[Rfam]
Nucleotides: 079
Stems, first nucleotide, its partner, number of pairs: 015035008056076001058074006
Number, partner (000 for none) and nucleotide at each position: 001000a002000a003000a004000a005000a006000a007000u008000a009000g010000g011000g012000g013000u014000u015035g016034u017033a018032g019031g020030g021029g022028a023000u024000g025000a026000a027000a028022u029021c030020c031019c032018c033017u034016g035015c036000c037000g038000u039000a040000c041000u042000a043000a044000g045000g046000a047000g048000g049000g050000u051000g052000c053000c054000c055000a056076g057000a058074c059073u060072g061071c062070g063069a064000a065000a066000g067000c068000g069063u070062c071061g072060u073059a074058g075000a076056c077000g078000c079000u
Background: This 79-nucleotide RNA sequence from Geosporobacter ferrireducens belongs to the Rfam family "Clostridiales-2 RNA". NCBI's taxonomy places the organism under Bacteria, Bacillota, Clostridia, Thermotaleaceae, Geosporobacter.